[Rfam]
RNA sequence: AUGCCUUAAACUUAUGACUAAGGAAAUAACAAUUCAGGGUGAUGCCUGAUUCCUCACUGCUAAUGUGAGAUGUAUUUUUGAGUAGGUAAAUGUUGCCCCAAGGUUACCCGUCUACCUUGUGGGAUCCUUGGGAUUCAAGAUCUACCCC
Numbered sequence: 001a002u003g004c005c006u007u008a009a010a011c012u013u014a015u016g017a018c019u020a021a022g023g024a025a026a027u028a029a030c031a032a033u034u035c036a037g038g039g040u041g042a043u044g045c046c047u048g049a050u051u052c053c054u055c056a057c058u059g060c061u062a063a064u065g066u067g068a069g070a071u072g073u074a075u076u077u078u079u080g081a082g083u084a085g086g087u088a089a090a091u092g093u094u095g096c097c098c099c100a101a102g103g104u105u106a107c108c109c110g111u112c113u114a115c116c117u118u119g120u121g122g123g124a125u126c127c128u129u130g131g132g133a134u135u136c137a138a139g140a141u142c143u144a145c146c147c148c
Stems, first nucleotide, its partner, number of pairs: 004023005032051001034049005053069005085146003090143001091140001093138002097132002100129004107123005
Rfam assigns this 148-nucleotide RNA sequence from Mustela putorius to the family "U12 minor spliceosomal RNA".
A search with the family's covariance model found it, with a score of 93 bits.